[Rfam]
RNA sequence: UUGAUGUUGGUUCGAAACCAUCCCAACUAAAAAAAACUAAGGAGGA
Numbered sequence: 001u002u003g004a005u006g007u008u009g010g011u012u013c014g015a016a017a018c019c020a021u022c023c024c025a026a027c028u029a030a031a032a033a034a035a036a037c038u039a040a041g042g043a044g045g046a
Stems, first nucleotide, its partner, number of pairs: 006027005016038001